RNA sequence: CUUGGCAUUGGGGUUCUUCGCCAGCAGGUGAUUGCCUACCGCAUGCAUCAGGUGCGUCUUGCCCAGGCCGACACCGCCAUA
Numbered sequence: 001c002u003u004g005g006c007a008u009u010g011g012g013g014u015u016c017u018u019c020g021c022c023a024g025c026a027g028g029u030g031a032u033u034g035c036c037u038a039c040c041g042c043a044u045g046c047a048u049c050a051g052g053u054g055c056g057u058c059u060u061g062c063c064c065a066g067g068c069c070g071a072c073a074c075c076g077c078c079a080u081a
Base pairs, nucleotide, nucleotide: 005042006041009038010037011036012035017031018030020029021028051078052077053076054075056074057073061072063070